A member of the RNA family "tRNA" from Spraguea lophii, 83 nucleotides long. The organism belongs to Spraguea lophii, within Eukaryota. It scores 63 bits against the family's covariance model. The family's consensus secondary structure is taken from published work.

RNA sequence: GGUAACAUGGCCGAGUGGUUAAGGCGGCAGACUUAAGAUCUGCUUCUCGUACGAGAGCGUGAGUUCGAUCCUCACUGUUACCA
Numbered sequence: 001g002g003u004a005a006c007a008u009g010g011c012c013g014a015g016u017g018g019u020u021a022a023g024g025c026g027g028c029a030g031a032c033u034u035a036a037g038a039u040c041u042g043c044u045u046c047u048c049g050u051a052c053g054a055g056a057g058c059g060u061g062a063g064u065u066c067g068a069u070c071c072u073c074a075c076u077g078u079u080a081c082c083a
Stems, first nucleotide, its partner, number of pairs: 001082007010025003027043005059075005